[Rfam]
RNA sequence: GAGUUAAUACUGUAAGCAAGCUUAACCUGUGAUAGCAGGGGAGGCGAAGGGAAACCGAGUUUUAAUAGAGCGAUUAGUUUAUAGUAUUAGACCCGAAGCCAAGUGAGCUAACCAUGACCAGGGUGAAGCCCGUCGAGAGACGGAUGGAGGCCCGAACCGGGGUGCGAGGAAAAGCACUCGGAUGAGCUGUGGUUAGUGGUGAAACGCCUAACAAACUUGGCGAUAGCUGGUU
Numbered sequence: 001g002a003g004u005u006a007a008u009a010c011u012g013u014a015a016g017c018a019a020g021c022u023u024a025a026c027c028u029g030u031g032a033u034a035g036c037a038g039g040g041g042a043g044g045c046g047a048a049g050g051g052a053a054a055c056c057g058a059g060u061u062u063u064a065a066u067a068g069a070g071c072g073a074u075u076a077g078u079u080u081a082u083a084g085u086a087u088u089a090g091a092c093c094c095g096a097a098g099c100c101a102a103g104u105g106a107g108c109u110a111a112c113c114a115u116g117a118c119c120a121g122g123g124u125g126a127a128g129c130c131c132g133u134c135g136a137g138a139g140a141c142g143g144a145u146g147g148a149g150g151c152c153c154g155a156a157c158c159g160g161g162g163u164g165c166g167a168g169g170a171a172a173a174g175c176a177c178u179c180g181g182a183u184g185a186g187c188u189g190u191g192g193u194u195a196g197u198g199g200u201g202a203a204a205c206g207c208c209u210a211a212c213a214a215a216c217u218u219g220g221c222g223a224u225a226g227c228u229g230g231u232u
Base pairs, nucleotide, nucleotide: 005089006088007087008086009085010084011083012082013081014080015079016078017077020045021044022043023042026039027038028037049056050055059071060070061069062068092230093229095227099220100219101218102217103216104215108196109195110194111193112192113191114190115189116188118186119184121153122152123151124150128145130143131142132141133140134139157181158180159179161178162177163176164175165174198208199207200206
Rfam assigns this 232-nucleotide part of an RNA from uncultured candidate division WWE3 bacterium EJ0ADIGA11YD11 to the family "Bacterial large subunit ribosomal RNA".
The organism belongs to candidate division WWE3, within Bacteria.
Rfam links the family to the GO terms structural constituent of ribosome and ribosome.
Pairs were carried over by alignment from the consensus structure, which is taken from published work.